[Rfam]
RNA sequence: GCUUUCUGAGCAGCUGGUGUAGAUACAGAGAAACCAGCUUUCUUCAGAGAGC
Numbered sequence: 001g002c003u004u005u006c007u008g009a010g011c012a013g014c015u016g017g018u019g020u021a022g023a024u025a026c027a028g029a030g031a032a033a034c035c036a037g038c039u040u041u042c043u044u045c046a047g048a049g050a051g052c
Stems, first nucleotide, its partner, number of pairs: 001052009012039007019026002
Source information:
Rfam assigns this 52-nucleotide RNA sequence from Monodelphis domestica to the family "MAT2A 3'UTR stem loop C". A reference for the family is Parker et al. (2011), "New families of human regulatory RNA structures identified by comparative analysis of vertebrate genomes", Genome Res. NCBI's taxonomy places the organism under Eukaryota, Metazoa, Mammalia, Didelphinae, Monodelphis. The base pairs follow the family's consensus structure, which is taken from published work. The family's RNA type in Rfam is cis-regulatory element.